[Rfam]
RNA sequence: GCUGCUCAGUGAAGAGGCCCCGGAAUGAGCGCUGGGCACGGCGCCCGAGUCAGUGUGGAAGUAUUCCUCCCUGCCUUCUGAGAACAGC
Numbered sequence: 001g002c003u004g005c006u007c008a009g010u011g012a013a014g015a016g017g018c019c020c021c022g023g024a025a026u027g028a029g030c031g032c033u034g035g036g037c038a039c040g041g042c043g044c045c046c047g048a049g050u051c052a053g054u055g056u057g058g059a060a061g062u063a064u065u066c067c068u069c070c071c072u073g074c075c076u077u078c079u080g081a082g083a084a085c086a087g088c
Stems, first nucleotide, its partner, number of pairs: 001088004
This 88-nucleotide RNA from Catagonus wagneri belongs to the Rfam family "Small nucleolar RNA U83B". The match comes from Rfam's covariance-model search (84 bits). NCBI's taxonomy places the organism under Eukaryota, Metazoa, Eutheria, Laurasiatheria, Catagonus. From the family's description: U83B belongs to the C/D family of snoRNAs. U83B like U83A has no documented RNA target and they share the same host gene with the C/D box snoRNA U43 (RPL3). N.B. U83A/B/C have no sequence similarity with the U83 snoRNA that was cloned by Jady and Kiss (2000). The family has 21 seed sequences and 966 matches in Rfam 15.1. Rfam classes the family as a C/D-box small nucleolar RNA.